[Rfam]
Overview: Plant small nucleolar RNA R71: a 107-nucleotide RNA.
RNA sequence: AAGCCAUGAUGAGGGCAUUGGUUGGUGUAACCCUUUAAACGCUUCCAUGCUUCACAGAAGCUUUCAUCAGUCUUCUGUGAGAAACUAGAAAUCUCAUUUCUGAGUCU
Numbered sequence: 001a002a003g004c005c006a007u008g009a010u011g012a013g014g015g016c017a018u019u020g021g022u023u024g025g026u027g028u029a030a031c032c033c034u035u036u037a038a039a040c041g042c043u044u045c046c047a048u049g050c051u052u053c054a055c056a057g058a059a060g061c062u063u064u065c066a067u068c069a070g071u072c073u074u075c076u077g078u079g080a081g082a083a084a085c086u087a088g089a090a091a092u093c094u095c096a097u098u099u100c101u102g103a104g105u106c107u
Stems, first nucleotide, its partner, number of pairs: 001107001003105002005102002057074002060071001
Rfam's curators put it in the seed alignment. By type it is a C/D-box small nucleolar RNA.